[Rfam]
RNA sequence: GCCCAAAGUCGCACGUGCCUGUGGGUGUCCGCUGGUUCUCAAAUGGUGAGAUUAACCGGUACGGUACAUGGAAUUAACCACUCCAGUCAUUCUUACGGCCAACCGAAAGAGUGAGGACAUCUUGAAGCAACGACGGUGCGGGCCUUU
Numbered sequence: 001g002c003c004c005a006a007a008g009u010c011g012c013a014c015g016u017g018c019c020u021g022u023g024g025g026u027g028u029c030c031g032c033u034g035g036u037u038c039u040c041a042a043a044u045g046g047u048g049a050g051a052u053u054a055a056c057c058g059g060u061a062c063g064g065u066a067c068a069u070g071g072a073a074u075u076a077a078c079c080a081c082u083c084c085a086g087u088c089a090u091u092c093u094u095a096c097g098g099c100c101a102a103c104c105g106a107a108a109g110a111g112u113g114a115g116g117a118c119a120u121c122u123u124g125a126a127g128c129a130a131c132g133a134c135g136g137u138g139c140g141g142g143c144c145u146u147u
Base pairs, nucleotide, nucleotide: 001143002142003141004140008134009133010132011131016129017128018127023122024121025120026119027118028117029116030115031060032059033058034057035056037051038050039049040048041047069085070084071083072082087114088113089112090111093107094106096105097104098103

This 147-nucleotide RNA sequence from Bartonella quintana belongs to the Rfam family "Alphaproteobacterial sRNA ar45". On this family, see del Val et al., RNA Biol 2012: "A survey of sRNA families in alpha-proteobacteria". The sequence is in the family's curated seed alignment.